Actino-pnp RNA: a 61-nucleotide sequence from Gleimia coleocanis. NCBI's taxonomy places the organism under Bacteria, Actinomycetota, Actinomycetales, Actinomycetaceae, Gleimia coleocanis. It is annotated as a cis-regulatory element. Pairs were carried over by alignment from the consensus structure, which is taken from published work.

[Rfam]
RNA sequence: UGCGGUCCUCGGUAGUGGCUUACGGAACGUGGUUGUCCGUGGGUCUCAAUCGAAGGCCGGC
Numbered sequence: 001u002g003c004g005g006u007c008c009u010c011g012g013u014a015g016u017g018g019c020u021u022a023c024g025g026a027a028c029g030u031g032g033u034u035g036u037c038c039g040u041g042g043g044u045c046u047c048a049a050u051c052g053a054a055g056g057c058c059g060g061c
Stems, first nucleotide, its partner, number of pairs: 003059005009053005017045010028035002